[Rfam]
RNA: mir-515 microRNA precursor family
Organism: Sapajus apella
RNA sequence: UCUCAAGCUGUGACCCUCUAGAGGGAAGCAUGUUCUGUGUUCUGAAAAAGAAAGAACUUGCAGCCUUGUGGAGUGUUACUGUUUGAGA
Numbered sequence: 001u002c003u004c005a006a007g008c009u010g011u012g013a014c015c016c017u018c019u020a021g022a023g024g025g026a027a028g029c030a031u032g033u034u035c036u037g038u039g040u041u042c043u044g045a046a047a048a049a050g051a052a053a054g055a056a057c058u059u060g061c062a063g064c065c066u067u068g069u070g071g072a073g074u075g076u077u078a079c080u081g082u083u084u085g086a087g088a
Base pairs, nucleotide, nucleotide: 001088002087003086004085005084007082008081010079011078012077013076014075016073017072018071020069022067023066024065025064028061029060030059032057033056034055035054038053